[Rfam]
RNA sequence: UUCAUUUGUACUCUCCAAUGGGAUGGGAUCCGAAGCCACUCGAGGGAUAAUACAGGCUGUCCCAUCCAACUCCUAUUCCGACACGUUCUCGUCGUGCAGAGUGGUAACGUGUGCCACCAGAUAUCCAAGCUUGGGUACACGGGCUUGACCCAACCCCUUGGGCAGAUGGUGACAUAUGGCGAACCGAGGAGUG
Numbered sequence: 001u002u003c004a005u006u007u008g009u010a011c012u013c014u015c016c017a018a019u020g021g022g023a024u025g026g027g028a029u030c031c032g033a034a035g036c037c038a039c040u041c042g043a044g045g046g047a048u049a050a051u052a053c054a055g056g057c058u059g060u061c062c063c064a065u066c067c068a069a070c071u072c073c074u075a076u077u078c079c080g081a082c083a084c085g086u087u088c089u090c091g092u093c094g095u096g097c098a099g100a101g102u103g104g105u106a107a108c109g110u111g112u113g114c115c116a117c118c119a120g121a122u123a124u125c126c127a128a129g130c131u132u133g134g135g136u137a138c139a140c141g142g143g144c145u146u147g148a149c150c151c152a153a154c155c156c157c158u159u160g161g162g163c164a165g166a167u168g169g170u171g172a173c174a175u176a177u178g179g180c181g182a183a184c185c186g187a188g189g190a191g192u193g
Stems, first nucleotide, its partner, number of pairs: 012099001015096001021067008030056002071193001073191002076189002083095003087104002108178006115171004123167003131153006155162002
drz-agam-2-2 ribozyme: a 193-nucleotide RNA sequence from Anopheles gambiae. The match comes from Rfam's covariance-model search (155 bits). The literature on the family includes a 2009 paper in Science by Webb et al., "Widespread occurrence of self-cleaving ribozymes". NCBI's taxonomy places the organism under Eukaryota, Mandibulata, Anophelinae, Anopheles, Anopheles gambiae.